[Rfam]
A member of the RNA family "mir-BART5 microRNA precursor family" from Lymphocryptovirus macacinegamma4, 89 nucleotides long. The family has 2 seed sequences and 7 matches in Rfam 15.1. Lineage of the source: Viruses > Duplodnaviria > Peploviricota > Herpesvirales > Lymphocryptovirus macacinegamma4. For this family Rfam cites "Epstein-Barr virus microRNAs are evolutionarily conserved and differentially expressed" (Cai et al., PLoS Pathog, 2006).

RNA sequence: UUGCUGCGGCACCGUAAGGUGAAUAUAGCUGCCCAUUGAUGUCUGUUUAGAACCCGGUGGGCCGCAGUUCACCUACAGUGACGCAGUGA
Numbered sequence: 001u002u003g004c005u006g007c008g009g010c011a012c013c014g015u016a017a018g019g020u021g022a023a024u025a026u027a028g029c030u031g032c033c034c035a036u037u038g039a040u041g042u043c044u045g046u047u048u049a050g051a052a053c054c055c056g057g058u059g060g061g062c063c064g065c066a067g068u069u070c071a072c073c074u075a076c077a078g079u080g081a082c083g084c085a086g087u088g089a
Stems, first nucleotide, its partner, number of pairs: 001089008010080003014076003018073007028065002031062008